[Rfam]
RNA sequence: AUUUCAAGUUUGAGGCCAUAACAGAAGUGCUCACAGGGCAGCCAAGUUAGAUUCCAGUGAAUCUGCAAAUUCUGCU
Number, nucleotide and partner (000 for none) at each position: 001a000002u000003u000004u000005c000006a000007a000008g000009u000010u000011u000012g000013a000014g043015g042016c041017c000018a000019u000020a076021a000022c074023a073024g072025a071026a070027g039028u038029g000030c000031u000032c000033a000034c000035a000036g000037g000038g028039c027040a000041g016042c015043c014044a000045a000046g000047u000048u065049a064050g063051a062052u061053u060054c059055c000056a000057g000058u000059g054060a053061a052062u051063c050064u049065g048066c000067a000068a000069a000070u026071u025072c024073u023074g022075c000076u020
Mammalian CPEB3 ribozyme: a 76-nucleotide RNA sequence from Alligator mississippiensis. Its family is annotated with RNA nuclease activity in the Gene Ontology. About the family: The mammalian CPEB3 ribozyme is a self cleaving RNA located in the second intron of the CPEB3 gene which belongs to a family of genes regulating messenger RNA polyadenylation. This ribozyme is highly conserved and found only in mammals. The CPEB3 ribozyme is structurally and biochemically related to the human hepatitis delta virus (HDV) ribozyme and the HDV ribozyme is proposed to have arisen from the human transcriptome. There is currently only one other known self cleaving ribozyme in mammals, the CoTC motif. The family has 14 seed sequences and 5,706 matches in Rfam 15.1. A search with the family's covariance model found it, with a score of 38 bits. NCBI's taxonomy places the organism under Eukaryota, Tetrapoda, Sauria, Archelosauria, Alligator. Pairs were carried over by alignment from the consensus structure, which is taken from published work.